[Rfam]
This 94-nucleotide RNA sequence from Piliocolobus tephrosceles belongs to the Rfam family "Small nucleolar RNA SNORD116". The family's consensus secondary structure was predicted with PFOLD. Taxonomically the source falls in Piliocolobus (Eukaryota, Chordata, Euteleostomi, Euarchontoglires). The match comes from Rfam's covariance-model search (68 bits). The literature on the family includes a 2000 paper in Proc Natl Acad Sci U S A by Cavaille et al., "Identification of brain-specific and imprinted small nucleolar RNA genes exhibiting an unusual genomic organization". The family's RNA type in Rfam is C/D-box small nucleolar RNA.
RNA sequence: GUCAAUGACGACUUCCAUACAUGCAUUCCUUGUAUGGAAAGCUGAACAAAAUGAGUGGGAACUCUAUACUAUCAUCUUAGCUGAACUGAGGUCC
Numbered sequence: 001g002u003c004a005a006u007g008a009c010g011a012c013u014u015c016c017a018u019a020c021a022u023g024c025a026u027u028c029c030u031u032g033u034a035u036g037g038a039a040a041g042c043u044g045a046a047c048a049a050a051a052u053g054a055g056u057g058g059g060a061a062c063u064c065u066a067u068a069c070u071a072u073c074a075u076c077u078u079a080g081c082u083g084a085a086c087u088g089a090g091g092u093c094c
Base pairs, nucleotide, nucleotide: 001092002091003090024057025056026055027054028053030049031048032047
Dot-bracket structure: (((....................(((((.(((..............)))...)))))................................)))..